[Rfam]
RNA sequence: UAAGGUGAUGAGCUCACUCUGGAAUCUCGUUCGGCUGAAUGUUGCUGUUGAGACUCGGACUCUGAGGCUU
Numbered sequence: 001u002a003a004g005g006u007g008a009u010g011a012g013c014u015c016a017c018u019c020u021g022g023a024a025u026c027u028c029g030u031u032c033g034g035c036u037g038a039a040u041g042u043u044g045c046u047g048u049u050g051a052g053a054c055u056c057g058g059a060c061u062c063u064g065a066g067g068c069u070u
Stems, first nucleotide, its partner, number of pairs: 025053005032047004
RNA: Small nucleolar RNA SNORD30
Organism: Pelusios castaneus